[Rfam]
The record is a 73-nucleotide sequence from Erpetoichthys calabaricus, which matches "mir-196 microRNA precursor family" in Rfam. Lineage of the source: Eukaryota > Opisthokonta > Euteleostomi > Polypteridae > Erpetoichthys. Rfam links the family to the GO terms RISC complex and gene silencing by miRNA.

RNA sequence: AGAGUGAUUUAGGUAGUUCCAUGUUGUUGGGCUUCAUACGAUCACAGGAACUUGAAACUGCCUGAAUUACUCC
Numbered sequence: 001a002g003a004g005u006g007a008u009u010u011a012g013g014u015a016g017u018u019c020c021a022u023g024u025u026g027u028u029g030g031g032c033u034u035c036a037u038a039c040g041a042u043c044a045c046a047g048g049a050a051c052u053u054g055a056a057a058c059u060g061c062c063u064g065a066a067u068u069a070c071u072c073c
Base pairs, nucleotide, nucleotide: 003071004070005069006068007067008066009065010064011063012062013061014060015059016058017057018056023051024050025049027047028046029045031043
Dot-bracket structure: ..((((((((((((((((....(((.(((.(...........).))).)))....))))))))))))))))..